[Rfam]
The record is a 61-nucleotide RNA sequence from Gorilla gorilla, which matches "U7 small nuclear RNA" in Rfam. The match comes from Rfam's covariance-model search (49 bits).
Nucleotides: 061
Base pairs, nucleotide, nucleotide: 032058033057034056035054036053037052038051039050040049041048042047
Number, partner (000 for none) and nucleotide at each position: 001000u002000a003000g004000u005000g006000u007000u008000a009000u010000a011000g012000c013000u014000c015000u016000a017000a018000g019000a020000a021000u022000u023000u024000g025000u026000c027000u028000a029000c030000c031000a032058g033057g034056u035054u036053u037052u038051c039050u040049g041048g042047u043000u044000g045000u046000g047042g048041c049040u050039g051038g052037a053036a054035a055000c056034a057033c058032c059000c060000c061000c